Overview: The record is a 132-nucleotide sequence from Oryza sativa, which matches "MIR5512 microRNA precursor family" in Rfam. The family has 2 seed sequences and 12 matches in Rfam 15.1.
RNA sequence: GUAUUUUUUUUUAGCAUUACCAUAUCCUAUUUGGCAAUGAAUUUCAUAUACUAGAGUAUGUUCUUAAGAUUGGAUUGUCUAAAGUGAAAUUCAUUGCCAAAUAGGAUAUGGUAAUGCUAAAAAAAUACAUGA
Numbered sequence: 001g002u003a004u005u006u007u008u009u010u011u012u013a014g015c016a017u018u019a020c021c022a023u024a025u026c027c028u029a030u031u032u033g034g035c036a037a038u039g040a041a042u043u044u045c046a047u048a049u050a051c052u053a054g055a056g057u058a059u060g061u062u063c064u065u066a067a068g069a070u071u072g073g074a075u076u077g078u079c080u081a082a083a084g085u086g087a088a089a090u091u092c093a094u095u096g097c098c099a100a101a102u103a104g105g106a107u108a109u110g111g112u113a114a115u116g117c118u119a120a121a122a123a124a125a126u127a128c129a130u131g132a
Stems, first nucleotide, its partner, number of pairs: 002131003006125042062069002